This 141-nucleotide RNA sequence from bacterium HR24 belongs to the Rfam family "c-di-AMP riboswitch aptamer (ydaO/yuaA leader)".
RNA sequence: GCUGUGGCCCCGCCUAAUCCGCCGAAUGGCGGACCGGGGGACAGGCUCUCUUGGGGUGAAUCUCGCCCCCAGGGGCGAGUAGGGCUAAGCCUUUCGGCCCGAACCCGUCAACUAACCUCGGAGGCGUCGGAAAGGCCUUGG
Numbered sequence: 001g002c003u004g005u006g007g008c009c010c011c012g013c014c015u016a017a018u019c020c021g022c023c024g025a026a027u028g029g030c031g032g033a034c035c036g037g038g039g040g041a042c043a044g045g046c047u048c049u050c051u052u053g054g055g056g057u058g059a060a061u062c063u064c065g066c067c068c069c070c071a072g073g074g075g076c077g078a079g080u081a082g083g084g085c086u087a088a089g090c091c092u093u094u095c096g097g098c099c100c101g102a103a104c105c106c107g108u109c110a111a112c113u114a115a116c117c118u119c120g121g122a123g124g125c126g127u128c129g130g131a132a133a134g135g136c137c138u139u140g141g
Base pairs, nucleotide, nucleotide: 011126012125013124014123018033019032020031021030022029023028034121035120036119037118038117039116042053043052054106055105056104062079063078064077065076082100083099084098085097
This family represents a conserved RNA structure found upstream of the ydaO and yuaA genes in Bacillus subtilis and related genes in other bacteria. It scores 83 bits against the family's covariance model.